[Rfam]
RNA: Bacterial large subunit ribosomal RNA, nucleotides 2702 to 2961
RNA sequence: GGAAACUUGAGAGGAGCUGUCCCUAGUACGAGAGGACCGGGAUGGACAGACCGCUGGUGUACCAGCUGUCCCGCCAGGGGCACCGCUGGGUAGCCAAGUCUGGACGGGAUAAGCGCUGAAAGCAUCUAAGCGCGAAGCCCACCUCAAGAUGAGGUUUCCCAUGGCAAAAGCCAGUAAGACCCCUGGAAGACGACCAGGUAGAUAGGCCAGGAGUGUAAGGGGGGUAACCCCUUGAGCGGACUGGUACUAAUCGGUCGAGG
Numbered sequence: 001g002g003a004a005a006c007u008u009g010a011g012a013g014g015a016g017c018u019g020u021c022c023c024u025a026g027u028a029c030g031a032g033a034g035g036a037c038c039g040g041g042a043u044g045g046a047c048a049g050a051c052c053g054c055u056g057g058u059g060u061a062c063c064a065g066c067u068g069u070c071c072c073g074c075c076a077g078g079g080g081c082a083c084c085g086c087u088g089g090g091u092a093g094c095c096a097a098g099u100c101u102g103g104a105c106g107g108g109a110u111a112a113g114c115g116c117u118g119a120a121a122g123c124a125u126c127u128a129a130g131c132g133c134g135a136a137g138c139c140c141a142c143c144u145c146a147a148g149a150u151g152a153g154g155u156u157u158c159c160c161a162u163g164g165c166a167a168a169a170g171c172c173a174g175u176a177a178g179a180c181c182c183c184u185g186g187a188a189g190a191c192g193a194c195c196a197g198g199u200a201g202a203u204a205g206g207c208c209a210g211g212a213g214u215g216u217a218a219g220g221g222g223g224g225u226a227a228c229c230c231c232u233u234g235a236g237c238g239g240a241c242u243g244g245u246a247c248u249a250a251u252c253g254g255u256c257g258a259g260g
Stems, first nucleotide, its partner, number of pairs: 001159008011145004017045007047102005055096003062089005067082006106140003113133005162173003175258001178256004182198005203249003206245005213237001219232005